[Rfam]
RNA sequence: UUGCGCAAGUAAUCCAUGGAUAAGCAAUUUUCGCAAUCCUCUGUCGCAGGCGAGGGCGUAAGCUUUCUCUCAGUUUCACGGCCCGGACCACGCGUCCAUCCGACCCGCCCAAUCAGGUGCGUCGGCGCCGCCGAUCCCACCGGGUCGCAGCGGCCACCGGGUCCGCACCGUCCAACCAGACGGGCGACGAAAGCGGCGACACGAUUGCCCGCGCAGGACUUGUCCCCAGGGAGGCCUCGGCCUCCCU
Numbered sequence: 001u002u003g004c005g006c007a008a009g010u011a012a013u014c015c016a017u018g019g020a021u022a023a024g025c026a027a028u029u030u031u032c033g034c035a036a037u038c039c040u041c042u043g044u045c046g047c048a049g050g051c052g053a054g055g056g057c058g059u060a061a062g063c064u065u066u067c068u069c070u071c072a073g074u075u076u077c078a079c080g081g082c083c084c085g086g087a088c089c090a091c092g093c094g095u096c097c098a099u100c101c102g103a104c105c106c107g108c109c110c111a112a113u114c115a116g117g118u119g120c121g122u123c124g125g126c127g128c129c130g131c132c133g134a135u136c137c138c139a140c141c142g143g144g145u146c147g148c149a150g151c152g153g154c155c156a157c158c159g160g161g162u163c164c165g166c167a168c169c170g171u172c173c174a175a176c177c178a179g180a181c182g183g184g185c186g187a188c189g190a191a192a193g194c195g196g197c198g199a200c201a202c203g204a205u206u207g208c209c210c211g212c213g214c215a216g217g218a219c220u221u222g223u224c225c226c227c228a229g230g231g232a233g234g235c236c237u238c239g240g241c242c243u244c245c246c247u
Base pairs, nucleotide, nucleotide: 001012002011003010004009043057044056045055076192079189080188081162082161083160084159085097086096087095088094100125101124102123103122104121107118108117109116127154128153129152130151133146134145135144136143137142164186165185166184168183169182170181171180172179193212194211195209196208197207198206199205228247229246230245231244233242234241235240
Shown here is a 247-nucleotide RNA sequence from Pseudomonas indica, a member of the family "Pseudomonas sRNA P24". From the family's description: This small RNA (sRNA) was computationally identified in the genome of the opportunistic pathogen Pseudomonas aeruginosa and its expression verified by Northern blot analysis. P24 is conserved across several Pseudomonas species and in Azotobacter vinelandii. It appears to be consistently located between a hypothetical protein gene and a transcriptional regulator gene (AsnC family) in the genomes of all these species. P24 has a predicted Rho independent terminator at the 3' end but the function of P24 is unknown. On this family, see Livny et al., Nucleic Acids Res 2006: "Identification of 17 Pseudomonas aeruginosa sRNAs and prediction of sRNA-encoding genes in 10 diverse pathogens using the bioinformatic tool sRNAPredict2". The base pairs follow the family's consensus structure, which was predicted with RNAalifold. The match comes from Rfam's covariance-model search (133 bits).